[Rfam]
RNA sequence: UGGGGCGUAGCCAAGCUGGUAAGGCACGGGACUUUGACUCCCGCAUGCGUAGGUUCGAAUCCUGCCGCCCCAG
Numbered sequence: 001u002g003g004g005g006c007g008u009a010g011c012c013a014a015g016c017u018g019g020u021a022a023g024g025c026a027c028g029g030g031a032c033u034u035u036g037a038c039u040c041c042c043g044c045a046u047g048c049g050u051a052g053g054u055u056c057g058a059a060u061c062c063u064g065c066c067g068c069c070c071c072a073g
Base pairs, nucleotide, nucleotide: 001072002071003070004069005068006067007066010025011024012023027043028042029041030040031039049065050064051063052062053061
This 73-nucleotide sequence from Symbiobacterium thermophilum belongs to the Rfam family "tRNA".
Pairs were carried over by alignment from the consensus structure, which is taken from published work.